[Rfam]
RNA sequence: CCCCUGGUUGCGACGGGGUUAUGUUGCAACAACCUCCCUGUUGGACUUGGCCCGGGCUAGCGCCCGGGUCUUUUUU
Numbered sequence: 001c002c003c004c005u006g007g008u009u010g011c012g013a014c015g016g017g018g019u020u021a022u023g024u025u026g027c028a029a030c031a032a033c034c035u036c037c038c039u040g041u042u043g044g045a046c047u048u049g050g051c052c053c054g055g056g057c058u059a060g061c062g063c064c065c066g067g068g069u070c071u072u073u074u075u076u
Base pairs, nucleotide, nucleotide: 008029009028010027011026012025013024014023049070050069051068052067053066054065055064056063

Shown here is a 76-nucleotide RNA sequence from Litoreibacter ponti, a member of the family "Singlet oxygen resistance RNA X". NCBI's taxonomy places the organism under Bacteria, Pseudomonadati, Pseudomonadota, Alphaproteobacteria, Litoreibacter. Rfam classes the family as a small RNA. For this family Rfam cites "Regulation of a polyamine transporter by the conserved 3' UTR-derived sRNA SorX confers resistance to singlet oxygen and organic hydroperoxides in Rhodobacter sphaeroides" (Peng et al., RNA Biol, 2016). SorX (RSs2461)like SorY is a singlet oxygen induced sRNA that counteracts oxidative stress by targeting mRNA for a transporter in Rhodobacter. It also has an impact on resistance against organic hydroperoxides. It targets SD sequence of potA mRNA via an aSD sequence. The aSD sequence and some neighbouring nucleotides are identical to the one of SorY (targets takP mRNA). A search with the family's covariance model found it, with a score of 57 bits. The pairing is the family consensus, mapped onto this sequence.